The family of this 132-nucleotide RNA sequence from Coptis chinensis is "Small nucleolar RNA snoR111". NCBI's taxonomy places the organism under Eukaryota, Euphyllophyta, Magnoliopsida, Mesangiospermae, Coptis.

[Rfam]
RNA sequence: CUAUUUUAUUAAGAGAAAUUAGAGACUUGUGUGUCUCUUCAUUGAAAGGAAACUGAUAUAGAGUAAUAUGGCGACAUAUCGUUUCAGUCGCCCUAUAUUUUGAUCGGAGAUUUGAUUGUUGCUCCUCUACAU
Numbered sequence: 001c002u003a004u005u006u007u008a009u010u011a012a013g014a015g016a017a018a019u020u021a022g023a024g025a026c027u028u029g030u031g032u033g034u035c036u037c038u039u040c041a042u043u044g045a046a047a048g049g050a051a052a053c054u055g056a057u058a059u060a061g062a063g064u065a066a067u068a069u070g071g072c073g074a075c076a077u078a079u080c081g082u083u084u085c086a087g088u089c090g091c092c093c094u095a096u097a098u099u100u101u102g103a104u105c106g107g108a109g110a111u112u113u114g115a116u117u118g119u120u121g122c123u124c125c126u127c128u129a130c131a132u
Stems, first nucleotide, its partner, number of pairs: 006045003010041001013037004017032001070128002073124002078116004087111003091107002096102001

Record summary: The match comes from Rfam's covariance-model search (64 bits). Rfam classes the family as an H/ACA-box small nucleolar RNA.